[Rfam]
RNA sequence: GAUCCAUCGAUCCAAACGAUCAACAAACUUGUCGUUUGUAAGUUUGUUCGUUCGGCUCGAGUUAUCA
Numbered sequence: 001g002a003u004c005c006a007u008c009g010a011u012c013c014a015a016a017c018g019a020u021c022a023a024c025a026a027a028c029u030u031g032u033c034g035u036u037u038g039u040a041a042g043u044u045u046g047u048u049c050g051u052u053c054g055g056c057u058c059g060a061g062u063u064a065u066c067a
Stems, first nucleotide, its partner, number of pairs: 001066003005061001008059003012055002017050002023047004028042002
Shown here is a 67-nucleotide RNA sequence from Cephus cinctus, a member of the family "mir-375 microRNA precursor family".
For this family Rfam cites "The developmental miRNA profiles of zebrafish as determined by small RNA cloning" (Chen et al., Genes Dev, 2005).
The match comes from Rfam's covariance-model search (51 bits).